[Rfam]
RNA sequence: AAAAAGGGCUUCUGUCAUGAGUGGCACACGAAGGUCAACUUGAUUGCUCUGCGUGCGGAAUCAACAAGAGAUUUCGGAAGCAUAAUUUCUUGGUAACUGGGCAGCUGGUGAUCUUGGUCCCUGUGGGGGAGGGGAUAACCAAAACAAGGCUGGGGGGUGGUGCACACCUUUAAUCCCAGCCCUCGG
Numbered sequence: 001a002a003a004a005a006g007g008g009c010u011u012c013u014g015u016c017a018u019g020a021g022u023g024g025c026a027c028a029c030g031a032a033g034g035u036c037a038a039c040u041u042g043a044u045u046g047c048u049c050u051g052c053g054u055g056c057g058g059a060a061u062c063a064a065c066a067a068g069a070g071a072u073u074u075c076g077g078a079a080g081c082a083u084a085a086u087u088u089c090u091u092g093g094u095a096a097c098u099g100g101g102c103a104g105c106u107g108g109u110g111a112u113c114u115u116g117g118u119c120c121c122u123g124u125g126g127g128g129g130a131g132g133g134g135a136u137a138a139c140c141a142a143a144a145c146a147a148g149g150c151u152g153g154g155g156g157g158u159g160g161u162g163c164a165c166a167c168c169u170u171u172a173a174u175c176c177c178a179g180c181c182c183u184c185g186g
Stems, first nucleotide, its partner, number of pairs: 008081005013026005027055004032050003036046003056076007099184003104180005110175003